[Rfam]
RNA: Small nucleolar RNA SNORA44
RNA sequence: UAGCACGUUUCCAGUGGCUGUGGCUGGUUGUAGAAAUGGGAUCUCGAACUGCAUUGGAGAGCAACCUAGAGAGACUUUGACAGCUCAGGUCAGCAUUAUACCUGCAGCUGCCACUCGCCUUUCCUUUGGUA
Numbered sequence: 001u002a003g004c005a006c007g008u009u010u011c012c013a014g015u016g017g018c019u020g021u022g023g024c025u026g027g028u029u030g031u032a033g034a035a036a037u038g039g040g041a042u043c044u045c046g047a048a049c050u051g052c053a054u055u056g057g058a059g060a061g062c063a064a065c066c067u068a069g070a071g072a073g074a075c076u077u078u079g080a081c082a083g084c085u086c087a088g089g090u091c092a093g094c095a096u097u098a099u100a101c102c103u104g105c106a107g108c109u110g111c112c113a114c115u116c117g118c119c120u121u122u123c124c125u126u127u128g129g130u131a
Stems, first nucleotide, its partner, number of pairs: 011039002018033005069123005083111002086104004